[Rfam]
RNA sequence: AAAUAUAAAUCGUAUAUGAUGGAUAUCUAGGUAACUAAAGGCGAUGAAAGACGCUAAUAUGCGAUAAUCUAUAAUAGAUUUCUUAAUGGGGUAACCUACUAAUAUAUUAUAUUAGUUUUUUUUUUAAAAGCAAACUGGGUGAACUGAAACAUCUAAGUAACCCAAGGAAAAUAAAUCAAAAUGAGAUUCUCUUAGUAGUGGCGAACGAAAAGGGAAAAGCCCAAAAAAUGAUUUUUUUUAAUAAAAAUAAUUUUGAAUAAUUUAUAUUAAAAGUAAUAAUCUUUUUUUUAUAUACAAAAAAAAUCAUAUAUAUGAGUAAAUUAAGACACGUGAAAUCUUAAUUGAAAAAAGGGGGACCAUCCUCUAAGGCUAAAUACUAUUAGUUAACCGAUAGUGAACUAGUACCGUGAGGGAAAGAUGAAAUAGAACCUUUAAUUAGGAGUGAAAUAGAACUUGAAAUUAUAUACGUAAAAG
Numbered sequence: 001a002a003a004u005a006u007a008a009a010u011c012g013u014a015u016a017u018g019a020u021g022g023a024u025a026u027c028u029a030g031g032u033a034a035c036u037a038a039a040g041g042c043g044a045u046g047a048a049a050g051a052c053g054c055u056a057a058u059a060u061g062c063g064a065u066a067a068u069c070u071a072u073a074a075u076a077g078a079u080u081u082c083u084u085a086a087u088g089g090g091g092u093a094a095c096c097u098a099c100u101a102a103u104a105u106a107u108u109a110u111a112u113u114a115g116u117u118u119u120u121u122u123u124u125u126a127a128a129a130g131c132a133a134a135c136u137g138g139g140u141g142a143a144c145u146g147a148a149a150c151a152u153c154u155a156a157g158u159a160a161c162c163c164a165a166g167g168a169a170a171a172u173a174a175a176u177c178a179a180a181a182u183g184a185g186a187u188u189c190u191c192u193u194a195g196u197a198g199u200g201g202c203g204a205a206c207g208a209a210a211a212g213g214g215a216a217a218a219g220c221c222c223a224a225a226a227a228a229u230g231a232u233u234u235u236u237u238u239u240a241a242u243a244a245a246a247a248u249a250a251u252u253u254u255g256a257a258u259a260a261u262u263u264a265u266a267u268u269a270a271a272a273g274u275a276a277u278a279a280u281c282u283u284u285u286u287u288u289u290a291u292a293u294a295c296a297a298a299a300a301a302a303a304u305c306a307u308a309u310a311u312a313u314g315a316g317u318a319a320a321u322u323a324a325g326a327c328a329c330g331u332g333a334a335a336u337c338u339u340a341a342u343u344g345a346a347a348a349a350a351g352g353g354g355g356a357c358c359a360u361c362c363u364c365u366a367a368g369g370c371u372a373a374a375u376a377c378u379a380u381u382a383g384u385u386a387a388c389c390g391a392u393a394g395u396g397a398a399c400u401a402g403u404a405c406c407g408u409g410a411g412g413g414a415a416a417g418a419u420g421a422a423a424u425a426g427a428a429c430c431u432u433u434a435a436u437u438a439g440g441a442g443u444g445a446a447a448u449a450g451a452a453c454u455u456g457a458a459a460u461u462a463u464a465u466a467c468g469u470a471a472a473a474g
Base pairs, nucleotide, nucleotide: 011468012467013466014465015464016463017462018461019460025454026418027417030389031388032386033385034384035383036382037381038380039378040377041131042130048084049083050082051081052063053062054061069077070076071075088097089096090095098116099115100114101113102112103111104110118128119127120126135166136164137163138162139161140160146153147152176184177183187374188215189214190213191212192211198206199205218371219370220369221368226311228307229306230305231304232303235300236299237298238297239294240293243288244287249262250261251260252259265269271283272282273281319343320342321341322340323339324338325337326336350365351364352363353362354361405412406411429440430439431438

Annotation
A member of the RNA family "Bacterial large subunit ribosomal RNA" from Candidatus Carsonella ruddii, 474 nucleotides of a longer RNA. The organism belongs to Candidatus Carsonella, within Bacteria.